Bacillaceae-1 RNA: a 68-nucleotide RNA from Allobacillus sp. SKP2-8. A search with the family's covariance model found it, with a score of 45 bits. The base pairs follow the family's consensus structure, which is taken from published work. Lineage of the source: Bacteria > Bacillota > Bacilli > Bacillaceae > Allobacillus.
RNA sequence: AGACUUCUGCGGUCAACUAAAUGCGGCCACGUCCUGUGGCCAACGUUGACACUAGCCCGUCCUGGGCG
Numbered sequence: 001a002g003a004c005u006u007c008u009g010c011g012g013u014c015a016a017c018u019a020a021a022u023g024c025g026g027c028c029a030c031g032u033c034c035u036g037u038g039g040c041c042a043a044c045g046u047u048g049a050c051a052c053u054a055g056c057c058c059g060u061c062c063u064g065g066g067c068g
Base pairs, nucleotide, nucleotide: 012050013049014048015047016046017045026040027039028038029037030036055067056066057065058064